[Rfam]
RNA sequence: ACACUACAUAUUUAUUGUAUUUUAUUUAUUAAUGCUGCUUUAAACCUCACACACAAGGAUUUGCUUCUACUAAUUUUUGAAAGCACUGGGUGUAUAUAGCUAAAAACCAGUGCUA
Numbered sequence: 001a002c003a004c005u006a007c008a009u010a011u012u013u014a015u016u017g018u019a020u021u022u023u024a025u026u027u028a029u030u031a032a033u034g035c036u037g038c039u040u041u042a043a044a045c046c047u048c049a050c051a052c053a054c055a056a057g058g059a060u061u062u063g064c065u066u067c068u069a070c071u072a073a074u075u076u077u078u079g080a081a082a083g084c085a086c087u088g089g090g091u092g093u094a095u096a097u098a099g100c101u102a103a104a105a106a107c108c109a110g111u112g113c114u115a
Stems, first nucleotide, its partner, number of pairs: 031061003035057001037050001082114008

About this RNA
Rfam assigns this 115-nucleotide RNA sequence from Rhadinovirus saimiriinegamma2 to the family "Herpesvirus saimiri U RNA1/RNA2". The base pairs follow the family's consensus structure, which is taken from published work. Lineage of the source: Viruses > Heunggongvirae > Herviviricetes > Rhadinovirus > Rhadinovirus saimiriinegamma2. It is one of the family's seed sequences.